Notes
The record is a 67-nucleotide RNA sequence from Bacillus sp. J14TS2, which matches "Bacillaceae-1 RNA" in Rfam. The organism belongs to Bacillus, within Bacteria. It scores 53 bits against the family's covariance model. The family's consensus secondary structure is taken from published work.
RNA sequence: AAAUAAGGAUCAAAGGCUAAGUUCGCGACACCCCUGUCGCAAAGCCUUUGUGACCAACCCCUGUUGG
Number, nucleotide and partner (000 for none) at each position: 001a000002a000003a000004u000005a000006a000007g000008g000009a000010u000011c050012a049013a048014a047015g046016g045017c044018u000019a000020a000021g000022u000023u000024c000025g040026c039027g038028a037029c036030a000031c000032c000033c000034c000035u000036g029037u028038c027039g026040c025041a000042a000043a000044g017045c016046c015047u014048u013049u012050g011051u000052g000053a000054c067055c066056a065057a064058c063059c000060c000061c000062u000063g058064u057065u056066g055067g054